[Rfam]
RNA sequence: CACGCGGGCAGGAACGUGGCAGGCCGCAGAGGGUUGCCAUUCAUUCCUCGUGCGGUUCAACAACAUGGUCCAAGA
Numbered sequence: 001c002a003c004g005c006g007g008g009c010a011g012g013a014a015c016g017u018g019g020c021a022g023g024c025c026g027c028a029g030a031g032g033g034u035u036g037c038c039a040u041u042c043a044u045u046c047c048u049c050g051u052g053c054g055g056u057u058c059a060a061c062a063a064c065a066u067g068g069u070c071c072a073a074g075a
Base pairs, nucleotide, nucleotide: 011071012070013069015067016066017065018064023056024055025054026053027052029049030048031047032046033045
Source information
The record is a 75-nucleotide RNA from Trypanosoma cruzi, which matches "Trypanosomatid snoRNA TB10cs1H3" in Rfam. It is annotated as an H/ACA-box small nucleolar RNA. The organism belongs to Schizotrypanum, within Eukaryota. Rfam 15.1 lists 36 matches to the family in 16 species. The base pairs follow the family's consensus structure, which was predicted with WAR.